[Rfam]
The family of this 87-nucleotide RNA sequence from Paenibacillus abyssi is "c-di-GMP-I riboswitch aptamer". NCBI's taxonomy places the organism under Bacteria, Bacillota, Bacilli, Paenibacillaceae, Paenibacillus. On this family, see Weinberg et al., Nucleic Acids Res 2007: "Identification of 22 candidate structured RNAs in bacteria using the CMfinder comparative genomics pipeline". It scores 88 bits against the family's covariance model.
RNA sequence: ACAUUGAAACGGCAAACCCGUUGAAAGAUGGGGACGCAAAGCCACGGGUCUAAAGUCGCAUGCGAUCAUGACAGCCGGGCUGCCGAA
Numbered sequence: 001a002c003a004u005u006g007a008a009a010c011g012g013c014a015a016a017c018c019c020g021u022u023g024a025a026a027g028a029u030g031g032g033g034a035c036g037c038a039a040a041g042c043c044a045c046g047g048g049u050c051u052a053a054a055g056u057c058g059c060a061u062g063c064g065a066u067c068a069u070g071a072c073a074g075c076c077g078g079g080c081u082g083c084c085g086a087a
Stems, first nucleotide, its partner, number of pairs: 012037002017032006040081004045077003048072003055066004